The record is a 59-nucleotide sequence from Gordonia mangrovi, which matches "F6 TB sRNA" in Rfam. For this family Rfam cites "Identification of small RNAs in Mycobacterium tuberculosis" (Arnvig and Young, Mol Microbiol, 2009). Lineage of the source: Bacteria > Bacillati > Actinomycetes > Gordoniaceae > Gordonia. The family's consensus secondary structure is taken from published work.
RNA sequence: CGAGUAGCUCCGGCUGAGCUGCCAGACCCCCGACCCGGCAGCUCGGUCGGGGCGCCUAC
Numbered sequence: 001c002g003a004g005u006a007g008c009u010c011c012g013g014c015u016g017a018g019c020u021g022c023c024a025g026a027c028c029c030c031c032g033a034c035c036c037g038g039c040a041g042c043u044c045g046g047u048c049g050g051g052g053c054g055c056c057u058a059c
Stems, first nucleotide, its partner, number of pairs: 003057002007053006014046010